[Rfam]
RNA sequence: GAUGUGGUUAAUGAUGCUCAUCUUUUUUCCCCAUCUUAUCGACAAUGGUGAAUUCUGACUGAAACUAAGCCAAUAAUGUCUGAAACCACAUC
Numbered sequence: 001g002a003u004g005u006g007g008u009u010a011a012u013g014a015u016g017c018u019c020a021u022c023u024u025u026u027u028u029c030c031c032c033a034u035c036u037u038a039u040c041g042a043c044a045a046u047g048g049u050g051a052a053u054u055c056u057g058a059c060u061g062a063a064a065c066u067a068a069g070c071c072a073a074u075a076a077u078g079u080c081u082g083a084a085a086c087c088a089c090a091u092c
Base pairs, nucleotide, nucleotide: 001092002091003090004089005088006087007086008085009084
Dot-bracket structure: (((((((((..........................................................................)))))))))